[Rfam]
RNA sequence: GGAGUUGCUCUCAAGACUUAUUUUUGACAAGGAGAGACGGACAAUGG
Numbered sequence: 001g002g003a004g005u006u007g008c009u010c011u012c013a014a015g016a017c018u019u020a021u022u023u024u025u026g027a028c029a030a031g032g033a034g035a036g037a038c039g040g041a042c043a044a045u046g047g
Stems, first nucleotide, its partner, number of pairs: 005040003008036005018027003
RNA: Streptococcus sRNA SpR10
Organism: Streptococcus pseudopneumoniae